[Rfam]
RNA: Small nucleolar RNA SNORA12
RNA sequence: UAUUGUGGUGGUUGCUGUACGUGGCAGAUCUGUAAUUGUAUCAGAGCUGUACCAGAACUACCACAAAGAUCAGAAAGGAGAAGGCUGUGCUGAGAACUUCAAGCUUUUAGUUUUCAGCUCUUUGUCCAGCUCCUACAGGA
Numbered sequence: 001u002a003u004u005g006u007g008g009u010g011g012u013u014g015c016u017g018u019a020c021g022u023g024g025c026a027g028a029u030c031u032g033u034a035a036u037u038g039u040a041u042c043a044g045a046g047c048u049g050u051a052c053c054a055g056a057a058c059u060a061c062c063a064c065a066a067a068g069a070u071c072a073g074a075a076a077g078g079a080g081a082a083g084g085c086u087g088u089g090c091u092g093a094g095a096a097c098u099u100c101a102a103g104c105u106u107u108u109a110g111u112u113u114u115c116a117g118c119u120c121u122u123u124g125u126c127c128a129g130c131u132c133c134u135a136c137a138g139g140a
Stems, first nucleotide, its partner, number of pairs: 005064007023052001024050002027047001029045004077133004100124004